[Rfam]
RNA sequence: GCCGAGACCAGAGUCACAUCCUGACACAGCUCUUGUCCUGGUGUGCUAGAGUUCUCGGAGAGAAUCCGCUGACCUUGAUUCACUGGCGGGGGCAAUGAGUGCCCCCGUUAGCGCCCAGGUCAGGAACAUCC
Numbered sequence: 001g002c003c004g005a006g007a008c009c010a011g012a013g014u015c016a017c018a019u020c021c022u023g024a025c026a027c028a029g030c031u032c033u034u035g036u037c038c039u040g041g042u043g044u045g046c047u048a049g050a051g052u053u054c055u056c057g058g059a060g061a062g063a064a065u066c067c068g069c070u071g072a073c074c075u076u077g078a079u080u081c082a083c084u085g086g087c088g089g090g091g092g093c094a095a096u097g098a099g100u101g102c103c104c105c106c107g108u109u110a111g112c113g114c115c116c117a118g119g120u121c122a123g124g125a126a127c128a129u130c131c
Stems, first nucleotide, its partner, number of pairs: 002058005007052002012047002015045006023037004069123007077115001081113001083111004088106006
Rfam assigns this 131-nucleotide RNA from Cavia porcellus to the family "Small nucleolar RNA SNORA3/SNORA45 family". The organism belongs to Cavia, within Eukaryota. It scores 132 bits against the family's covariance model. The base pairs follow the family's consensus structure, which was predicted with RNAalifold. The family's RNA type in Rfam is H/ACA-box small nucleolar RNA. Its family is annotated with nucleolus and RNA processing in the Gene Ontology. For this family Rfam cites "RNomics: an experimental approach that identifies 201 candidates for novel, small, non-messenger RNAs in mouse" (Huttenhofer et al., EMBO J, 2001).